[Rfam]
mir-137 microRNA precursor family: a 59-nucleotide RNA sequence from Salmo salar. The family's consensus secondary structure was predicted with RNAalifold. On this family, see Ruby et al., Genome Res 2007: "Evolution, biogenesis, expression, and target predictions of a substantially expanded set of Drosophila microRNAs". The organism belongs to Salmo, within Eukaryota. The sequence is in the family's curated seed alignment.
RNA sequence: ACGGGUAUUCUUGGGUUGAUAAUACAGAUGUCGAUGUUAUUGCUUGAGAAUACGCGUAG
Numbered sequence: 001a002c003g004g005g006u007a008u009u010c011u012u013g014g015g016u017u018g019a020u021a022a023u024a025c026a027g028a029u030g031u032c033g034a035u036g037u038u039a040u041u042g043c044u045u046g047a048g049a050a051u052a053c054g055c056g057u058a059g
Stems, first nucleotide, its partner, number of pairs: 001057003005053012018041007025033001